[Rfam]
RNA sequence: ACUAUGAACCAUUCUAACGGUUCCUCUACUCGCAAAUGUUGGGACGGUCCCAACCGCUCGCGG
Numbered sequence: 001a002c003u004a005u006g007a008a009c010c011a012u013u014c015u016a017a018c019g020g021u022u023c024c025u026c027u028a029c030u031c032g033c034a035a036a037u038g039u040u041g042g043g044a045c046g047g048u049c050c051c052a053a054c055c056g057c058u059c060g061c062g063g
Stems, first nucleotide, its partner, number of pairs: 006023005030063004038054006

Shown here is a 63-nucleotide sequence from Saccharimonas aalborgensis, a member of the family "MDR-NUDIX RNA". It is one of the family's seed sequences. Rfam classes the family as a cis-regulatory element. Taxonomically the source falls in Saccharimonas (SeqCode) (Bacteria, Candidatus Saccharimonadota, Candidatus Saccharimonadia, Saccharimonadales (SeqCode)). The family's consensus secondary structure is taken from published work.